Rfam assigns this 161-nucleotide RNA from Papaver somniferum to the family "U12 minor spliceosomal RNA". The organism belongs to Papaver, within Eukaryota.

[Rfam]
RNA sequence: UUGCCUUAAACUAAUGAGUAAGGAAAACAAAGCGAAUGGUGAAGGCCGUUCGCAGCGCUAAGCAAAAAUUCUUGCGCAAUAAUUUUUGAAGGGGUUAUAGGCUGGCCAAGUGUUGACGCUGCUUACUUUUGCAGAACUCACUUGUGCUGGCCUCCCACCCU
Dot-bracket structure: ...(((((..........)))))........((((((((......)))))))).((((...............)))).............(((((...(((((((.((.(((......((((........))))....))).))..)))))))...)))))

A search with the family's covariance model found it, with a score of 102 bits.